[Rfam]
RNA sequence: AUGGAAGUCUCUUGUCGAGAAUAUUCAUUCAUCCAAGGGCCUUUAAAAGCGAGGGCCGAGGGGUUCCUCACACCCUCCUCCAGAAUUUAACAGUUUGCUUGUGCUUAGUCAUUGUCUAUGCUGGCUACAACAUGAAGCUUUUGCUCUGAAAGCCAGCAAAGUCUUUGGCCAAUGCAUAUCUGGCAAACCGGCAAGUCACAGAAACGGCACGGUCACGACUCUUUUCUGGUUUUU
Numbered sequence: 001a002u003g004g005a006a007g008u009c010u011c012u013u014g015u016c017g018a019g020a021a022u023a024u025u026c027a028u029u030c031a032u033c034c035a036a037g038g039g040c041c042u043u044u045a046a047a048a049g050c051g052a053g054g055g056c057c058g059a060g061g062g063g064u065u066c067c068u069c070a071c072a073c074c075c076u077c078c079u080c081c082a083g084a085a086u087u088u089a090a091c092a093g094u095u096u097g098c099u100u101g102u103g104c105u106u107a108g109u110c111a112u113u114g115u116c117u118a119u120g121c122u123g124g125c126u127a128c129a130a131c132a133u134g135a136a137g138c139u140u141u142u143g144c145u146c147u148g149a150a151a152g153c154c155a156g157c158a159a160a161g162u163c164u165u166u167g168g169c170c171a172a173u174g175c176a177u178a179u180c181u182g183g184c185a186a187a188c189c190g191g192c193a194a195g196u197c198a199c200a201g202a203a204a205c206g207g208c209a210c211g212g213u214c215a216c217g218a219c220u221c222u223u224u225u226c227u228g229g230u231u232u233u234u
Base pairs, nucleotide, nucleotide: 053081054080055079093188094187095186096185097184098183110174111173112172217233218232221229

Early nodulin 40: a 234-nucleotide RNA from Populus trichocarpa. It is one of the family's seed sequences. Taxonomically the source falls in Populus (Eukaryota, Streptophytina, Euphyllophyta, Gunneridae). Rfam 15.1 lists 341 matches to the family in 193 species. Pairs were carried over by alignment from the consensus structure, which is taken from published work. Rfam links the family to the GO term nodulation.